[Rfam]
RNA: cow-rumen-4 RNA
RNA sequence: UUACAGAAGGUGGGUUAGGAACCAUCUUCUGUAAAUAUUAUUUUUUAAGCAUAGGGAGGCUUAAU
Numbered sequence: 001u002u003a004c005a006g007a008a009g010g011u012g013g014g015u016u017a018g019g020a021a022c023c024a025u026c027u028u029c030u031g032u033a034a035a036u037a038u039u040a041u042u043u044u045u046u047a048a049g050c051a052u053a054g055g056g057a058g059g060c061u062u063a064a065u
Stems, first nucleotide, its partner, number of pairs: 002033004006028001008027006045064006